Rfam assigns this 52-nucleotide RNA sequence from Gulo gulo to the family "mir-1302 microRNA precursor family".
[Rfam]
RNA sequence: UUUGUAGCAUAAGUAUAUCCCAUGCAAUAGUUGGGAUAUACUUAUGCUACAA
Numbered sequence: 001u002u003u004g005u006a007g008c009a010u011a012a013g014u015a016u017a018u019c020c021c022a023u024g025c026a027a028u029a030g031u032u033g034g035g036a037u038a039u040a041c042u043u044a045u046g047c048u049a050c051a052a
Stems, first nucleotide, its partner, number of pairs: 006048007014040003018036004022031001
Annotation: Gene Ontology terms of the family: miRNA-mediated post-transcriptional gene silencing and RISC complex. A search with the family's covariance model found it, with a score of 70 bits.